Overview
The family of this 97-nucleotide RNA sequence from Lactovum miscens is "THF (Tetrahydrofolate) riboswitch aptamer". The family's consensus secondary structure is taken from published work. Rfam describes the family as follows. Tetrahydrofolate (THF) riboswitch was first reported for Ames et al. as an RNA motif in 5' untranslated (5'-UTR)regions of folate transport and biosynthesis genes in Firmicutes genomes. On this family, see Huang et al., Proc Natl Acad Sci U S A 2011: "Long-range pseudoknot interactions dictate the regulatory response in the tetrahydrofolate riboswitch". The match comes from Rfam's covariance-model search (76 bits).
RNA sequence: UACAGAGUAGGGUAAGUUGCGUUAAGUGCCAUGACACGGGAUGUUGGUCAUGGACGAAGCUGGUUCGCCAGCGCGGUACUUGCUCGCGUCCGCUGUA
Numbered sequence: 001u002a003c004a005g006a007g008u009a010g011g012g013u014a015a016g017u018u019g020c021g022u023u024a025a026g027u028g029c030c031a032u033g034a035c036a037c038g039g040g041a042u043g044u045u046g047g048u049c050a051u052g053g054a055c056g057a058a059g060c061u062g063g064u065u066c067g068c069c070a071g072c073g074c075g076g077u078a079c080u081u082g083c084u085c086g087c088g089u090c091c092g093c094u095g096u097a
Stems, first nucleotide, its partner, number of pairs: 001097005010085007018078002020075003026055002029053007039091005059072004